[Rfam]
RNA sequence: AGUGUAGUAUCUGUUCUUAUCAGCUUAAUCUCUGAUAUGUGGCCUAUCGGUCACUUCGAGAUUAUUCUAUUUUUGAGACCUUGGUGAGUUUGUAGGGGCUUGCUCCUCGCUCACCGCGGGUCGACCCGGUAUUGCACCUACCUCCGGGAACGGCCCAUUCAUC
Numbered sequence: 001a002g003u004g005u006a007g008u009a010u011c012u013g014u015u016c017u018u019a020u021c022a023g024c025u026u027a028a029u030c031u032c033u034g035a036u037a038u039g040u041g042g043c044c045u046a047u048c049g050g051u052c053a054c055u056u057c058g059a060g061a062u063u064a065u066u067c068u069a070u071u072u073u074u075g076a077g078a079c080c081u082u083g084g085u086g087a088g089u090u091u092g093u094a095g096g097g098g099c100u101u102g103c104u105c106c107u108c109g110c111u112c113a114c115c116g117c118g119g120g121u122c123g124a125c126c127c128g129g130u131a132u133u134g135c136a137c138c139u140a141c142c143u144c145c146g147g148g149a150a151c152g153g154c155c156c157a158u159u160c161a162u163c
Base pairs, nucleotide, nucleotide: 018037019036020035021034022033023032039054040053041052042051043050044049083115084114085113086112087111088110089109095106096105097104098103118156119155120154121153122152123151125148126147127146128145129144
Shown here is a 163-nucleotide RNA sequence from Cnemophilus loriae, a member of the family "U2 spliceosomal RNA". U2 is a small nuclear RNA (snRNA) component of the spliceosome (involved in pre-mRNA splicing). Complementary binding between U2 snRNA (in an area lying towards the 5' end but 3' to hairpin I) and the branchpoint sequence (BPS) of the intron results the bulging out of an unpaired adenosine, on the BPS, which initiates a nucleophilic attack at the intronic 5' splice site, thus starting the first of two transesterification reactions that mediate splicing. The family's consensus secondary structure is taken from published work. The literature on the family includes a 1997 paper in Nucleic Acids Res by Zwieb, "The uRNA database". By type it is a spliceosomal small nuclear RNA. The organism belongs to Cnemophilus, within Eukaryota.